About this RNA: The record is a 108-nucleotide RNA sequence from Ipomoea nil, which matches "MIR394 microRNA precursor family" in Rfam. Its family is annotated with RISC complex and miRNA-mediated post-transcriptional gene silencing in the Gene Ontology. The match comes from Rfam's covariance-model search (86 bits). Pairs were carried over by alignment from the consensus structure, which was predicted with WAR. Taxonomically the source falls in Ipomoea (Eukaryota, Magnoliopsida, Mesangiospermae, Solanales). For this family Rfam cites "Computational identification of plant microRNAs and their targets, including a stress-induced miRNA" (Jones-Rhoades and Bartel, Mol Cell, 2004).
Nucleotides: 108
Stems, first nucleotide, its partner, number of pairs: 011098001014094006023085010
Number, partner (000 for none) and nucleotide at each position: 001000c002000c003000u004000a005000c006000a007000g008000a009000g010000c011098u012000u013000a014094u015093u016092g017091g018090c019089a020000u021000u022000c023085u024084g025083u026082c027081c028080a029079c030078c031077u032076c033000c034000a035000c036000u037000a038000u039000u040000u041000u042000u043000u044000g045000a046000c047000c048000c049000a050000a051000a052000a053000a054000a055000a056000a057000g058000a059000a060000g061000a062000a063000a064000u065000c066000u067000a068000u069000u070000a071000u072000g073000g074000u075000a076032g077031a078030g079029g080028u081027g082026g083025g084024c085023a086000u087000a088000c089019u090018g091017c092016c093015a094014a095000c096000a097000g098011a099000g100000a101000u102000c103000u104000g105000u106000g107000g108000g